RNA sequence: ACAUGUUCAAGGUCAAAGCAGAAGCAAUCAUGGUGUAGCCUUGUCAGAUCCCAAUAAAUCUGUGAAUUCUGCU
Numbered sequence: 001a002c003a004u005g006u007u008c009a010a011g012g013u014c015a016a017a018g019c020a021g022a023a024g025c026a027a028u029c030a031u032g033g034u035g036u037a038g039c040c041u042u043g044u045c046a047g048a049u050c051c052c053a054a055u056a057a058a059u060c061u062g063u064g065a066a067u068u069c070u071g072c073u
Base pairs, nucleotide, nucleotide: 010041011040012039013038017073018072019071020070021069022068023067024036025035026034045062046061047060048059049058
RNA: Mammalian CPEB3 ribozyme
Organism: Crocodylus porosus